[Rfam]
Notes:
A member of the RNA family "Ribosomal protein L20 leader" from Vagococcus penaei, 141 nucleotides long. By type it is a cis-regulatory leader. Gene Ontology term of the family: regulation of gene expression. The base pairs follow the family's consensus structure, which was predicted with CMfinder. The organism belongs to Vagococcus, within Bacteria.
RNA sequence: GAAAUAAAGCAGGAGCACCCGCUUCUCGCCUUAGUUGUUUUAAGCGACUGGGCUUGAUAAAGAUAAUUCUUUUCGUUCUAGCGACGUCAUAGAAUUUUUGGUGCGGGCUCUUGAUAAAAGAACCCGUUUUUCUGUGUUUUU
Numbered sequence: 001g002a003a004a005u006a007a008a009g010c011a012g013g014a015g016c017a018c019c020c021g022c023u024u025c026u027c028g029c030c031u032u033a034g035u036u037g038u039u040u041u042a043a044g045c046g047a048c049u050g051g052g053c054u055u056g057a058u059a060a061a062g063a064u065a066a067u068u069c070u071u072u073u074c075g076u077u078c079u080a081g082c083g084a085c086g087u088c089a090u091a092g093a094a095u096u097u098u099u100g101g102u103g104c105g106g107g108c109u110c111u112u113g114a115u116a117a118a119a120g121a122a123c124c125c126g127u128u129u130u131u132c133u134g135u136g137u138u139u140u141u
Stems, first nucleotide, its partner, number of pairs: 011026006028053003034048005103127005109121003
Dot-bracket structure: ..........((((((....)))))).(((...(((((.....)))))..))).................................................(((((.(((.......))).)))))..............